[Rfam]
RNA sequence: UAAUAGGUAAAAGUCCUAUCAGAGUAAAAGUCAAAACUCUGUAGCUGAAUGGCAAUAUAAUUGAGAAAUCAAUUAUAUUGAAGUCCAUUGAAAAAGGUAUCUAUAGGGUAUCAAGCAAGUAUGCAGACCAUAACACCA
Numbered sequence: 001u002a003a004u005a006g007g008u009a010a011a012a013g014u015c016c017u018a019u020c021a022g023a024g025u026a027a028a029a030g031u032c033a034a035a036a037c038u039c040u041g042u043a044g045c046u047g048a049a050u051g052g053c054a055a056u057a058u059a060a061u062u063g064a065g066a067a068a069u070c071a072a073u074u075a076u077a078u079u080g081a082a083g084u085c086c087a088u089u090g091a092a093a094a095a096g097g098u099a100u101c102u103a104u105a106g107g108g109u110a111u112c113a114a115g116c117a118a119g120u121a122u123g124c125a126g127a128c129c130a131u132a133a134c135a136c137c138a
Base pairs, nucleotide, nucleotide: 020041021040022039023038024037048089049088050087051086052085053080054079055078056077057076058075062071064069096112097111098110099109100108101107115131
Dot-bracket structure: ...................(((((............)))))......(((((((((((...(.(....).)...))))))....)))))......((((((.....))))))..(...............).......